[Rfam]
The record is a 165-nucleotide RNA from Castor canadensis, which matches "U1 spliceosomal RNA" in Rfam.
A reference for the family is Zwieb (1997), "The uRNA database", Nucleic Acids Res.
RNA sequence: UAAUAGACCUGGCAAGGGAGAUAACCAUGAUCACGAAGGUGGUUUUCCCAGGGCGAGGCUUAUCCAUUGCACUCCUGAUGUACUGACCCCUGCGAUUUCCCUGAAUGUGGGAAACUCGACUGCAUAAUUUAUGGUAUUGGGGGACUGCGUUCACACUCUCCCCUG
Numbered sequence: 001u002a003a004u005a006g007a008c009c010u011g012g013c014a015a016g017g018g019a020g021a022u023a024a025c026c027a028u029g030a031u032c033a034c035g036a037a038g039g040u041g042g043u044u045u046u047c048c049c050a051g052g053g054c055g056a057g058g059c060u061u062a063u064c065c066a067u068u069g070c071a072c073u074c075c076u077g078a079u080g081u082a083c084u085g086a087c088c089c090c091u092g093c094g095a096u097u098u099c100c101c102u103g104a105a106u107g108u109g110g111g112a113a114a115c116u117c118g119a120c121u122g123c124a125u126a127a128u129u130u131a132u133g134g135u136a137u138u139g140g141g142g143g144a145c146u147g148c149g150u151u152c153a154c155a156c157u158c159u160c161c162c163c164u165g
Stems, first nucleotide, its partner, number of pairs: 012123003016049006024043005050091004055087001057084002061080004093118003096114003100110002139164006147156001149154001
The family's RNA type in Rfam is spliceosomal small nuclear RNA.
The match comes from Rfam's covariance-model search (126 bits).
Rfam's curators write: U1 is a small nuclear RNA (snRNA) component of the spliceosome (involved in pre-mRNA splicing). Its 5' end forms complementary base pairs with the 5' splice junction, thus defining the 5' donor site of an intron.
Rfam links the family to the GO terms mRNA 5'-splice site recognition, U1 snRNP and pre-mRNA 5'-splice site binding.
Pairs were carried over by alignment from the consensus structure, which is taken from published work.